drum RNA: a 121-nucleotide sequence. The sequence is in the family's curated seed alignment. From the family's description: Firmicutes, Bacteroidetes (1 example), Proteobacteria (2 examples), Spirochaetes (2 examples). It is annotated as a small RNA.
RNA sequence: AGGCAAUGAUACACCAUUGUGUUCCGGCACGCACCGUGGUGAAGAGCCUCUGGAGGAGUUGUGCGUGUGAACCUCAAACCGGAUAGGUGCUAAGCGAGCACCGAACGAAAACAUGCUUUGG
Numbered sequence: 001a002g003g004c005a006a007u008g009a010u011a012c013a014c015c016a017u018u019g020u021g022u023u024c025c026g027g028c029a030c031g032c033a034c035c036g037u038g039g040u041g042a043a044g045a046g047c048c049u050c051u052g053g054a055g056g057a058g059u060u061g062u063g064c065g066u067g068u069g070a071a072c073c074u075c076a077a078a079c080c081g082g083a084u085a086g087g088u089g090c091u092a093a094g095c096g097a098g099c100a101c102c103g104a105a106c107g108a109a110a111a112c113a114u115g116c117u118u119u120g121g
Base pairs, nucleotide, nucleotide: 001049002048003047004046012041013040014039015038016037017036019034020033021032022031024082025081026080027079063116064115065114086102087101088100089099090098091097